[Rfam]
RNA: Repression of heat shock gene expression (ROSE) element
Organism: Citrobacter rodentium
RNA sequence: UCUGACUACCCGACCUGUCCACAAUGGAAGGUCACACAUUCUCGCUGAUUUCAGGAGCUAUUGAUUAUGCGUA
Numbered sequence: 001u002c003u004g005a006c007u008a009c010c011c012g013a014c015c016u017g018u019c020c021a022c023a024a025u026g027g028a029a030g031g032u033c034a035c036a037c038a039u040u041c042u043c044g045c046u047g048a049u050u051u052c053a054g055g056a057g058c059u060a061u062u063g064a065u066u067a068u069g070c071g072u073a
Stems, first nucleotide, its partner, number of pairs: 012033005018028003037063002041057003045054003